[Rfam]
Nucleotides: 115
Base pairs, nucleotide, nucleotide: 002051003050004049005048006047007046008045009044010043014040015039016038017037019035021032060114061111069099070098071097072096073095074094075093078090079089081088082087
Number, partner (000 for none) and nucleotide at each position: 001000g002051u003050g004049u005048u006047u007046u008045u009044c010043u011000a012000a013000g014040g015039u016038u017037g018000a019035c020000a021032c022000u023000g024000u025000g026000c027000u028000u029000u030000c031000a032021g033000a034000g035019g036000c037017u038016a039015a040014c041000a042000c043010a044009g045008a046007a047006g048005g049004g050003u051002a052000a053000a054000g055000u056000a057000a058000g059000u060114u061111u062000a063000u064000a065000a066000c067000a068000c069099c070098c071097a072096g073095a074094g075093a076000a077000a078090a079089g080000a081088u082087u083000g084000u085000c086000a087082a088081a089079u090078u091000c092000u093075u094074u095073u096072u097071u098070g099069g100000g101000g102000g103000c104000a105000g106000a107000a108000c109000c110000g111061g112000g113000g114060a115000u
A member of the RNA family "Small nucleolar RNA SNORA26" from Octodon degus, 115 nucleotides long. Rfam 15.1 lists 1,943 matches to the family in 640 species. It scores 70 bits against the family's covariance model. The family is grouped with related families in Rfam's "SNORA27 clan". Rfam classes the family as an H/ACA-box small nucleolar RNA. Lineage of the source: Eukaryota > Vertebrata > Tetrapoda > Eutheria > Octodon. Rfam describes the family as follows. The snoRNA HBI-6 belong to the H/ACA family of snoRNAs, guiding the pseudouridylation of position U4522 if the 28S rRNA. HBI-6 is the human orthologue of mouse MBI-6 snoRNA. On this family, see Huttenhofer et al., EMBO J 2001: "RNomics: an experimental approach that identifies 201 candidates for novel, small, non-messenger RNAs in mouse".